[Rfam]
RNA sequence: CCUCGGGGACGACUCCAGAAGUCUGCUUUUACUCGCGGGGACGACUCCG
Numbered sequence: 001c002c003u004c005g006g007g008g009a010c011g012a013c014u015c016c017a018g019a020a021g022u023c024u025g026c027u028u029u030u031a032c033u034c035g036c037g038g039g040g041a042c043g044a045c046u047c048c049g
Base pairs, nucleotide, nucleotide: 001021003019004018005016006015007014008013036049037048038047039046040045
Guanidine-II riboswitch aptamer (mini-ykkC): a 49-nucleotide RNA from Phoenix dactylifera. Taxonomically the source falls in Phoenix (Eukaryota, Embryophyta, Magnoliopsida, Coryphoideae). The family has 72 seed sequences and 1,589 matches in Rfam 15.1. Rfam describes the family as follows. Simpler in structure and has fewer highly conserved nucleotide positions than the ykkC-yxkD leader. Despite this each of its two stem-loop structures directly bind free guanidine. Therefore, mini-ykkC RNA motif represents a distinct class of guanidine-sensing RNAs.